[Rfam]
mir-29 microRNA precursor family: a 65-nucleotide RNA from Zophobas morio. Pairs were carried over by alignment from the consensus structure, which was predicted with PFOLD. The literature on the family includes a 2001 paper in Cell by Ambros, "microRNAs: tiny regulators with great potential". Rfam describes the family as follows. This family represents the microRNA (miRNA) precursors mir-29. The organism belongs to Zophobas, within Eukaryota.
RNA sequence: UGGGCACUGUUUUCGUGUGGUGGUAAGAUUUAUUCAAUUCUAGCACCAUAUGAAAUCAGUUCUUG
Numbered sequence: 001u002g003g004g005c006a007c008u009g010u011u012u013u014c015g016u017g018u019g020g021u022g023g024u025a026a027g028a029u030u031u032a033u034u035c036a037a038u039u040c041u042a043g044c045a046c047c048a049u050a051u052g053a054a055a056u057c058a059g060u061u062c063u064u065g
Stems, first nucleotide, its partner, number of pairs: 001065004007059003011055005017049006026041003